[Rfam]
RNA sequence: AUAUUCAAAUAGCCAAAACUUGCUGAAGCAAGUGCGGGGGACGAUUUAUGAAGAGCCACAAAUGUAGAGCAAAUGCUCUUUGAACUGGUGAUGGCCUUCUUGGGGUGAAGCGCAAACGUUGCGUAGGGUGUAAUCCUUUUUCCCGAAUCCGACAACUAACUCCGCAGGUGAUAUAAAAAGGAGGA
Numbered sequence: 001a002u003a004u005u006c007a008a009a010u011a012g013c014c015a016a017a018a019c020u021u022g023c024u025g026a027a028g029c030a031a032g033u034g035c036g037g038g039g040g041a042c043g044a045u046u047u048a049u050g051a052a053g054a055g056c057c058a059c060a061a062a063u064g065u066a067g068a069g070c071a072a073a074u075g076c077u078c079u080u081u082g083a084a085c086u087g088g089u090g091a092u093g094g095c096c097u098u099c100u101u102g103g104g105g106u107g108a109a110g111c112g113c114a115a116a117c118g119u120u121g122c123g124u125a126g127g128g129u130g131u132a133a134u135c136c137u138u139u140u141u142c143c144c145g146a147a148u149c150c151g152a153c154a155a156c157u158a159a160c161u162c163c164g165c166a167g168g169u170g171a172u173a174u175a176a177a178a179a180g181g182a183g184g185a
Stems, first nucleotide, its partner, number of pairs: 012169003018033006034165006042102002103150003111123004126144003

Record summary
The record is a 185-nucleotide sequence from Fontibacillus panacisegetis, which matches "c-di-AMP riboswitch aptamer (ydaO/yuaA leader)" in Rfam. From the family's description: This family represents a conserved RNA structure found upstream of the ydaO and yuaA genes in Bacillus subtilis and related genes in other bacteria. NCBI's taxonomy places the organism under Bacteria, Bacillati, Bacilli, Paenibacillaceae, Fontibacillus. It scores 69 bits against the family's covariance model.